[Rfam]
RNA: Mammalian CPEB3 ribozyme
RNA sequence: AGGGGUUACAAGGUUGAUGCCACAGCAGAAGCACUCAUAGUGCAGCCCUGUCAGAUUCCAACAAAUCUGCAAAUUCUGUU
Numbered sequence: 001a002g003g004g005g006u007u008a009c010a011a012g013g014u015u016g017a018u019g020c021c022a023c024a025g026c027a028g029a030a031g032c033a034c035u036c037a038u039a040g041u042g043c044a045g046c047c048c049u050g051u052c053a054g055a056u057u058c059c060a061a062c063a064a065a066u067c068u069g070c071a072a073a074u075u076c077u078g079u080u
Base pairs, nucleotide, nucleotide: 012048013047019046020045024080025079026078027077028076029075030074031043032042033041052069053068054067055066056065057064